[Rfam]
RNA sequence: UUUCCGUUGGUGAAAAUCCAAUCACCUCGAUUUAAGCUAAGAAGCAAUUCUCCAUUGGUAGCAAAUAGUUAUUCCAUUAAGCGGAGGAAAUCCUAUU
Numbered sequence: 001u002u003u004c005c006g007u008u009g010g011u012g013a014a015a016a017u018c019c020a021a022u023c024a025c026c027u028c029g030a031u032u033u034a035a036g037c038u039a040a041g042a043a044g045c046a047a048u049u050c051u052c053c054a055u056u057g058g059u060a061g062c063a064a065a066u067a068g069u070u071a072u073u074c075c076a077u078u079a080a081g082c083g084g085a086g087g088a089a090a091u092c093c094u095a096u097u
Stems, first nucleotide, its partner, number of pairs: 007021004050086004054077002057074001058072005

Overview: Plastid-rps12 3UTR RNA: a 97-nucleotide sequence from Osyris alba. NCBI's taxonomy places the organism under Eukaryota, Magnoliopsida, Pentapetalae, Santalales, Osyris. The family's consensus secondary structure was predicted with LocARNA. Rfam 15.1 lists 1,710 matches to the family in 1,426 species. About the family: Plastid rpl20 is a non-coding RNA (ncRNA) recognised in plastids. It was found in the three prime untranslated region (3UTR) of rps12 gene, its 3UTR location sugest a role in transcript maduration. It is annotated as a cis-regulatory element.